[Rfam]
RNA sequence: CCGUGCUAGAUGGGGAGUUAGCGGUGCCCUGUAACCUGCAAUCCGCUACAGCAGGGUUGAAUUCUUCGCCUAGACUUUAACUUGUGGGGUCUGGCCUGUAAAAGUGGUGUUGAUAAUUGGGUCCCACGCAACGAAAAUUCAUGAACUCCGUCAGAUCCGGAAGGAAGCAGCGGUAAGUGAACACUUUCGUGUGCCGUGGAUAAACCUGAUUUGAGCUAACUGUACAGGUAACGCUCAUAAGUUAACAGACAAAGCGAAGUGCACGG
Numbered sequence: 001c002c003g004u005g006c007u008a009g010a011u012g013g014g015g016a017g018u019u020a021g022c023g024g025u026g027c028c029c030u031g032u033a034a035c036c037u038g039c040a041a042u043c044c045g046c047u048a049c050a051g052c053a054g055g056g057u058u059g060a061a062u063u064c065u066u067c068g069c070c071u072a073g074a075c076u077u078u079a080a081c082u083u084g085u086g087g088g089g090u091c092u093g094g095c096c097u098g099u100a101a102a103a104g105u106g107g108u109g110u111u112g113a114u115a116a117u118u119g120g121g122u123c124c125c126a127c128g129c130a131a132c133g134a135a136a137a138u139u140c141a142u143g144a145a146c147u148c149c150g151u152c153a154g155a156u157c158c159g160g161a162a163g164g165a166a167g168c169a170g171c172g173g174u175a176a177g178u179g180a181a182c183a184c185u186u187u188c189g190u191g192u193g194c195c196g197u198g199g200a201u202a203a204a205c206c207u208g209a210u211u212u213g214a215g216c217u218a219a220c221u222g223u224a225c226a227g228g229u230a231a232c233g234c235u236c237a238u239a240a241g242u243u244a245a246c247a248g249a250c251a252a253a254g255c256g257a258a259g260u261g262c263a264c265g266g
Stems, first nucleotide, its partner, number of pairs: 001266006009058003012030004017025003035055005064259006073250001075248002079243010092230002096227005104220002106217003115211008124199005129191002132189005138181005148173004156165003
Dot-bracket structure: ((((((..(((((((.(((...))).))))....(((((...........)))))))).....((((((...(.((..((((((((((...((..(((((...(((((......((((((((.(((((((.(((((.(((((.....((((....(((....)))....))))...)))))...)))))))...)))))....))))))))...))).))..))))).))...))))))))))...)).)...)))))).))))))
RNA: Bacterial large signal recognition particle RNA
Organism: Clostridium botulinum